[Rfam]
RNA sequence: CGCUCGCCGCCUGAACUUCGACUCAACCUCUUGACAGGUGUAGGUGAGCAAAGUUUCAGGUGUGCGAGCGG
Dot-bracket structure: .(((((((((((((((((...((((.(((............)))))))..)))).))))))).))))))..
The family of this 71-nucleotide RNA from Mesorhabditis spiculigera is "mir-87 microRNA precursor family".
Taxonomically the source falls in Mesorhabditis (Eukaryota, Eumetazoa, Nematoda, Rhabditoidea).